[Rfam]
RNA sequence: GUUGCAAAUUUGAGGCCAUAGCAGAAAUACUCAUGGUGCAGCUUGUCAAAUUCCAAUGCAUCUGCAAAUUCUGCU
Numbered sequence: 001g002u003u004g005c006a007a008a009u010u011u012g013a014g015g016c017c018a019u020a021g022c023a024g025a026a027a028u029a030c031u032c033a034u035g036g037u038g039c040a041g042c043u044u045g046u047c048a049a050a051u052u053c054c055a056a057u058g059c060a061u062c063u064g065c066a067a068a069u070u071c072u073g074c075u
Base pairs, nucleotide, nucleotide: 012043015042016041020075021074022073023072024071025070026069028038029037047064048063050061051060053058

This 75-nucleotide RNA from Alligator mississippiensis belongs to the Rfam family "Mammalian CPEB3 ribozyme". The mammalian CPEB3 ribozyme is a self cleaving RNA located in the second intron of the CPEB3 gene which belongs to a family of genes regulating messenger RNA polyadenylation. This ribozyme is highly conserved and found only in mammals. The family's consensus secondary structure is taken from published work.